[Rfam]
RNA sequence: UUGAUCCUUCAGGGCAGGGUGCAAUUCCCUACCGGCGGUGAUGAACGGCACGGCGAAGCGAGUCUUCCCGGCCGGGACAAGUCCGCUACCCGGUCGGCCGCUGCAGACAGCGUGCUGAACGGUGGACCCGGUGCGAUUCCGGGACCGACAGUAUAGUCUGGAUGGAAGAAGGAGAGA
Number, nucleotide and partner (000 for none) at each position: 001u000002u000003g000004a000005u173006c172007c171008u170009u169010c168011a000012g000013g000014g000015c000016a000017g029018g028019g027020u000021g000022c000023a000024a000025u000026u000027c019028c018029c017030u000031a157032c156033c147034g146035g086036c085037g084038g083039u000040g000041a000042u000043g000044a000045a000046c000047g000048g000049c000050a000051c000052g000053g000054c000055g000056a000057a000058g000059c000060g000061a000062g000063u000064c000065u000066u000067c000068c000069c000070g000071g000072c000073c000074g000075g000076g000077a000078c000079a000080a000081g000082u000083c038084c037085g036086c035087u000088a000089c000090c122091c121092g000093g000094u000095c000096g000097g000098c000099c000100g000101c000102u000103g000104c000105a000106g000107a000108c000109a000110g000111c000112g000113u000114g000115c000116u000117g000118a000119a000120c000121g091122g090123u000124g000125g000126a000127c143128c142129c141130g140131g139132u000133g000134c000135g000136a000137u000138u000139c131140c130141g129142g128143g127144a000145c000146c034147g033148a000149c160150a159151g158152u000153a000154u000155a000156g032157u031158c151159u150160g149161g000162a000163u000164g000165g000166a000167a000168g010169a009170a008171g007172g006173a005174g000175a000176g000177a000
The family of this 177-nucleotide RNA from Paenibacillus spiritus is "FMN riboswitch aptamer (RFN element)". Its family is annotated with FMN binding in the Gene Ontology. It scores 101 bits against the family's covariance model. The organism belongs to Paenibacillus, within Bacteria.